Rfam assigns this 73-nucleotide RNA from SAR202 cluster bacterium AD-804-J14_MRT_500m to the family "tRNA". The source organism's lineage runs through Bacteria, Bacillati, Chloroflexota, Dehalococcoidia and SAR202 cluster. The family's consensus secondary structure is taken from published work. The match comes from Rfam's covariance-model search (71 bits).
[Rfam]
RNA sequence: GGCAACGUAGCUCAGUGGUUAGAGCGGGCGCUUCAUAAGCGCUAGGUCGCUGGUUCGAACCCAGUCGUUGCCA
Number, nucleotide and partner (000 for none) at each position: 001g072002g071003c070004a069005a068006c067007g066008u000009a000010g025011c024012u023013c022014a000015g000016u000017g000018g000019u000020u000021a000022g013023a012024g011025c010026g000027g043028g042029c041030g040031c039032u000033u000034c000035a000036u000037a000038a000039g031040c030041g029042c028043u027044a000045g000046g000047u000048c000049g065050c064051u063052g062053g061054u000055u000056c000057g000058a000059a000060c000061c053062c052063a051064g050065u049066c007067g006068u005069u004070g003071c002072c001073a000